This 56-nucleotide RNA belongs to the Rfam family "Glutamine-II riboswitch aptamer".
[Rfam]
RNA sequence: CUACGUUCAUCCAAUUUAUUUGGACGCAUUAUAAGAGAAUAGGGAACGGGAUUCUC
Numbered sequence: 001c002u003a004c005g006u007u008c009a010u011c012c013a014a015u016u017u018a019u020u021u022g023g024a025c026g027c028a029u030u031a032u033a034a035g036a037g038a039a040u041a042g043g044g045a046a047c048g049g050g051a052u053u054c055u056c
Base pairs, nucleotide, nucleotide: 004048005047006046007045008044010024011023012022013021014020035056036055037054038053039052040051